Shown here is a 366-nucleotide RNA sequence from Halodesulfovibrio spirochaetisodalis, a member of the family "Bacterial RNase P class A". Its family is annotated with ribonuclease P activity, dimeric ribonuclease P complex and tRNA processing in the Gene Ontology. The family's RNA type in Rfam is ribozyme. The base pairs follow the family's consensus structure, which is taken from published work. The match comes from Rfam's covariance-model search (318 bits).

[Rfam]
RNA sequence: GGAGUUGGACAGGUUAUCGCCGCGCACAUUAGUGCGGGGAGGAAAGUCCGGGCUCUAAAGGGCAGAGCGCUGGGUAACACCCAGGGGGAGUGAUCUCCGGAGAGUGCCACAGAAAGCAAACCGCCUAAGCAGCUUGCUGCCGGUAAGGUUGAAACGGUGAGGUAAGAGCUCACCAGGUACCAUGGUGACAUGGUAGGCUAGGUAAACCCCGUUCAGAGCAAGACCAAAUAGGAAAACAGUUACGACCGGCCCGGUCGUUGUUUUCGGGUAGGUUGCUUGAGGUUAUGAGUAAUCAUAACCCUAGACGAAUGAUAACCGCCCUCGCAAGAGGGAGACAAAACCCGGCUUAUAGUCCUGACUCCAUAU
Numbered sequence: 001g002g003a004g005u006u007g008g009a010c011a012g013g014u015u016a017u018c019g020c021c022g023c024g025c026a027c028a029u030u031a032g033u034g035c036g037g038g039g040a041g042g043a044a045a046g047u048c049c050g051g052g053c054u055c056u057a058a059a060g061g062g063c064a065g066a067g068c069g070c071u072g073g074g075u076a077a078c079a080c081c082c083a084g085g086g087g088g089a090g091u092g093a094u095c096u097c098c099g100g101a102g103a104g105u106g107c108c109a110c111a112g113a114a115a116g117c118a119a120a121c122c123g124c125c126u127a128a129g130c131a132g133c134u135u136g137c138u139g140c141c142g143g144u145a146a147g148g149u150u151g152a153a154a155c156g157g158u159g160a161g162g163u164a165a166g167a168g169c170u171c172a173c174c175a176g177g178u179a180c181c182a183u184g185g186u187g188a189c190a191u192g193g194u195a196g197g198c199u200a201g202g203u204a205a206a207c208c209c210c211g212u213u214c215a216g217a218g219c220a221a222g223a224c225c226a227a228a229u230a231g232g233a234a235a236a237c238a239g240u241u242a243c244g245a246c247c248g249g250c251c252c253g254g255u256c257g258u259u260g261u262u263u264u265c266g267g268g269u270a271g272g273u274u275g276c277u278u279g280a281g282g283u284u285a286u287g288a289g290u291a292a293u294c295a296u297a298a299c300c301c302u303a304g305a306c307g308a309a310u311g312a313u314a315a316c317c318g319c320c321c322u323c324g325c326a327a328g329a330g331g332g333a334g335a336c337a338a339a340a341c342c343c344g345g346c347u348u349a350u351a352g353u354c355c356u357g358a359c360u361c362c363a364u365a366u
Stems, first nucleotide, its partner, number of pairs: 001362006007355004011350001012317007020039002023036005044348003048345005053218004060252004065214005070084005085098005099209002104207002106203003121148002123144003129140004156174006176198001178195007222274004232265006243257005281300008